[Rfam]
The record is a 358-nucleotide sequence from Anas platyrhynchos, which matches "ncRNA Repressor of NFAT (nuclear factor of activated T cells)" in Rfam.
RNA sequence: CCUUCCACCCUGCCUCGGAUCCUUACGUGCUGUAUUAAUCCAUAUAUGAAAAUCUCUUUUAAUGAGGAGUGAUAUAGUUAUGAACUCUCCAGGGCCAUAAUUAGAGCAAACUAAUUGAAGUUGUGUUUUGACACACUUUCCAAAUUCACGGGUACUGCAUGACAUAUUCACAACACCGCCGCGCACAGCCAUGGCGACAGCAGAAUCAUUAGGCUAAUAACGCUUAUUUGCAUUCUUAUCAUGCCAGCAGCAUGCCGUUAAAUACUGCUUCAACCGGUGCUGGGUUACUCUGAAAGUUUCUGCUGAAAGAUAUUAACAGUAAUUAUUAGUUCUUUAGUGGAAUCUCUGAUGUUAAGGA
Numbered sequence: 001c002c003u004u005c006c007a008c009c010c011u012g013c014c015u016c017g018g019a020u021c022c023u024u025a026c027g028u029g030c031u032g033u034a035u036u037a038a039u040c041c042a043u044a045u046a047u048g049a050a051a052a053u054c055u056c057u058u059u060u061a062a063u064g065a066g067g068a069g070u071g072a073u074a075u076a077g078u079u080a081u082g083a084a085c086u087c088u089c090c091a092g093g094g095c096c097a098u099a100a101u102u103a104g105a106g107c108a109a110a111c112u113a114a115u116u117g118a119a120g121u122u123g124u125g126u127u128u129u130g131a132c133a134c135a136c137u138u139u140c141c142a143a144a145u146u147c148a149c150g151g152g153u154a155c156u157g158c159a160u161g162a163c164a165u166a167u168u169c170a171c172a173a174c175a176c177c178g179c180c181g182c183g184c185a186c187a188g189c190c191a192u193g194g195c196g197a198c199a200g201c202a203g204a205a206u207c208a209u210u211a212g213g214c215u216a217a218u219a220a221c222g223c224u225u226a227u228u229u230g231c232a233u234u235c236u237u238a239u240c241a242u243g244c245c246a247g248c249a250g251c252a253u254g255c256c257g258u259u260a261a262a263u264a265c266u267g268c269u270u271c272a273a274c275c276g277g278u279g280c281u282g283g284g285u286u287a288c289u290c291u292g293a294a295a296g297u298u299u300c301u302g303c304u305g306a307a308a309g310a311u312a313u314u315a316a317c318a319g320u321a322a323u324u325a326u327u328a329g330u331u332c333u334u335u336a337g338u339g340g341a342a343u344c345u346c347u348g349a350u351g352u353u354a355a356g357g358a
Stems, first nucleotide, its partner, number of pairs: 033351005039341005046334001048332001054069006074326008085094003105281004117139004122135005151256002155250001180196003183192001200244003213231002216228004
Pairs were carried over by alignment from the consensus structure. The family has 24 seed sequences and 522 matches in Rfam 15.1. A reference for the family is Willingham et al. (2005), "A strategy for probing the function of noncoding RNAs finds a repressor of NFAT", Science.